[Rfam]
RNA sequence: AUACCUUUCUAGGCCUUUUGGCUAAGAUCAAGUGUAGUAUCUGUUCUUAUCAAUUUAAUAUCUGAUAUGUGGGUCAUUGGUCCACUAUGAUAUUAAAUUAAUUUUUUACGAGGAGAGGGUUCAUUUCAAUAGCUUGCUAUUGGAAUCCUCGUGUGUCGUUCUUGCGUUGCACUAUUGCAAAUUCAGGCGCACCCGAC
Numbered sequence: 001a002u003a004c005c006u007u008u009c010u011a012g013g014c015c016u017u018u019u020g021g022c023u024a025a026g027a028u029c030a031a032g033u034g035u036a037g038u039a040u041c042u043g044u045u046c047u048u049a050u051c052a053a054u055u056u057a058a059u060a061u062c063u064g065a066u067a068u069g070u071g072g073g074u075c076a077u078u079g080g081u082c083c084a085c086u087a088u089g090a091u092a093u094u095a096a097a098u099u100a101a102u103u104u105u106u107u108a109c110g111a112g113g114a115g116a117g118g119g120u121u122c123a124u125u126u127c128a129a130u131a132g133c134u135u136g137c138u139a140u141u142g143g144a145a146u147c148c149u150c151g152u153g154u155g156u157c158g159u160u161c162u163u164g165c166g167u168u169g170c171a172c173u174a175u176u177g178c179a180a181a182u183u184c185a186g187g188c189g190c191a192c193c194c195g196a197c
Stems, first nucleotide, its partner, number of pairs: 008027003012023004048067005069085007115150008129140004153190005162180004